[Rfam]
RNA sequence: CAUAUUUUAUGGCAAACUCGUUGAAAAACGAGGACGCAAAGCCGUGGGUCUAAGGGCGGGUGCUUCCUAUGACUGCCUGGUUGCUCUU
Numbered sequence: 001c002a003u004a005u006u007u008u009a010u011g012g013c014a015a016a017c018u019c020g021u022u023g024a025a026a027a028a029c030g031a032g033g034a035c036g037c038a039a040a041g042c043c044g045u046g047g048g049u050c051u052a053a054g055g056g057c058g059g060g061u062g063c064u065u066c067c068u069a070u071g072a073c074u075g076c077c078u079g080g081u082u083g084c085u086c087u088u
Stems, first nucleotide, its partner, number of pairs: 012037002017032006040082004046077002048073003055067002058064001